This 113-nucleotide sequence from Kitasatospora griseola belongs to the Rfam family "TPP riboswitch aptamer (THI element)". Lineage of the source: Bacteria > Bacillati > Actinomycetota > Streptomycetaceae > Kitasatospora. It scores 68 bits against the family's covariance model.
RNA sequence: CUACCUCAUCACGGGAGCCCGGCGCACCGGGCUGAGAGGCGGGCUGUGGCGGCCCGCGACCGUCCGAACCUGAUCCGGGUCAUGCCGGCGAAGGGAGAAGAAGUGCCGUGGCA
Numbered sequence: 001c002u003a004c005c006u007c008a009u010c011a012c013g014g015g016a017g018c019c020c021g022g023c024g025c026a027c028c029g030g031g032c033u034g035a036g037a038g039g040c041g042g043g044c045u046g047u048g049g050c051g052g053c054c055c056g057c058g059a060c061c062g063u064c065c066g067a068a069c070c071u072g073a074u075c076c077g078g079g080u081c082a083u084g085c086c087g088g089c090g091a092a093g094g095g096a097g098a099a100g101a102a103g104u105g106c107c108g109u110g111g112c113a
Stems, first nucleotide, its partner, number of pairs: 006101002009098002011063004017032005039057008069094003075088004